[Rfam]
RNA sequence: UGCCAAGGUAUCCUUACCAUCCAGUUGCUGUUGCUCUGUGCUGUACCUUUGGUA
Numbered sequence: 001u002g003c004c005a006a007g008g009u010a011u012c013c014u015u016a017c018c019a020u021c022c023a024g025u026u027g028c029u030g031u032u033g034c035u036c037u038g039u040g041c042u043g044u045a046c047c048u049u050u051g052g053u054a
Stems, first nucleotide, its partner, number of pairs: 001054006007047005027034002
The family of this 54-nucleotide RNA sequence from Panurus biarmicus is "Avian HBV RNA encapsidation signal epsilon".
Pairs were carried over by alignment from the consensus structure, which is taken from published work.
Rfam classes the family as a cis-regulatory element.
Clan: Hepadnavirus_epsilon clan.
A reference for the family is Beck and Nassal (1997), "Sequence- and structure-specific determinants in the interaction between the RNA encapsidation signal and reverse transcriptase of avian hepatitis B viruses", J Virol.
Gene Ontology term of the family: viral genome replication.